[Rfam]
A member of the RNA family "Group II catalytic intron D1-D4-4" from Nocardia terpenica, 141 nucleotides long. Taxonomically the source falls in Nocardia (Bacteria, Actinomycetota, Mycobacteriales, Nocardiaceae). Rfam describes the family as follows. Group II introns are found in rRNA, tRNA and mRNA of organelles in fungi, plants and protists, and also in mRNA in bacteria. Gene Ontology term of the family: Group II intron splicing. Rfam 15.1 lists 840 matches to the family in 506 species.

RNA sequence: UUGCCGGUGGAAGUCCGGUCCGGGUAGCUGCCAGGAGGCCCGGUAGCAGGCUGGCGGUGCCGUCUGGAAACGGGUGGUGCCGAAGCCCAGCGUCGAACGCCCUCGUGUGUGGGGUGUGCAACCGAACGGUCCGUAACGUGA
Numbered sequence: 001u002u003g004c005c006g007g008u009g010g011a012a013g014u015c016c017g018g019u020c021c022g023g024g025u026a027g028c029u030g031c032c033a034g035g036a037g038g039c040c041c042g043g044u045a046g047c048a049g050g051c052u053g054g055c056g057g058u059g060c061c062g063u064c065u066g067g068a069a070a071c072g073g074g075u076g077g078u079g080c081c082g083a084a085g086c087c088c089a090g091c092g093u094c095g096a097a098c099g100c101c102c103u104c105g106u107g108u109g110u111g112g113g114g115u116g117u118g119c120a121a122c123c124g125a126a127c128g129g130u131c132c133g134u135a136a137c138g139u140g141a
Base pairs, nucleotide, nucleotide: 020043021042022041023040024039050091051090052089053088054087055082056081057080058079059078060077064073066071100113101112102111118134119133